Source information: The family of this 108-nucleotide sequence from Anisodus acutangulus is "mir-399 microRNA precursor family". NCBI's taxonomy places the organism under Eukaryota, Streptophytina, Euphyllophyta, Solanaceae, Anisodus. Rfam links the family to the GO terms miRNA-mediated post-transcriptional gene silencing and RISC complex. Pairs were carried over by alignment from the consensus structure, which was predicted with PFOLD. Rfam describes the family as follows. mir-399 was identified in both Arabidopsis thaliana and Oryza sativa computationally and was later experimentally verified. mir-399 is thought to target mRNAs coding for a phosphatase transporter. The mature sequence is excised from the 3' arm of the hairpin.
RNA sequence: GGCUGUGUUACGGGGCAAAUCUUCUUUGGCAAUUAAUGACCAAACUUGCACUAAAUAACAGUGAAGUUGUGGUUAUUUGCCAAAGAAGAUUAGCCCAGUAAUGCAUCC
Dot-bracket structure: ....(((((.(.((((((..((((..((((((.((......................................)).))))))..)))).)).)))).).)))))....